[Rfam]
Shown here is a 137-nucleotide RNA from Anaerofilum hominis, a member of the family "THF (Tetrahydrofolate) riboswitch aptamer". Tetrahydrofolate (THF) riboswitch was first reported for Ames et al. as an RNA motif in 5' untranslated (5'-UTR)regions of folate transport and biosynthesis genes in Firmicutes genomes. The match comes from Rfam's covariance-model search (67 bits).
Nucleotides: 137
Stems, first nucleotide, its partner, number of pairs: 002136004010124010020113003049080002052078008063130003067126001085110004
Number, partner (000 for none) and nucleotide at each position: 001000c002136a003135c004134a005133g006000a007000g008000u009000a010124g011123g012122g013121a014120a015119c016118u017117g018116c019115g020113c021112g022111u023000c024000a025000g026000g027000c028000c029000g030000g031000g032000a033000g034000a035000u036000c037000u038000c039000c040000c041000g042000g043000c044000c045000g046000c047000c048000a049080g050079u051000g052078c053077c054076c055075g056074c057073c058072g059071g060000a061000c062000g063130g064129g065128g066000a067126g068000u069000u070000g071059c072058c073057g074056g075055c076054g077053g078052g079050a080049c081000g082000a083000a084000a085110g086109g087108g088107g089000a090000a091000c092000g093000g094000u095000c096000c097000u098000a099000u100000c101000c102000g103000c104000a105000u106000c107088c108087c109086c110085c111022g112021c113020g114000g115019u116018g117017c118016a119015g120014u121013u122012c123011u124010c125000g126067c127000a128065u129064c130063c131000c132000g133005c134004u135003g136002u137000a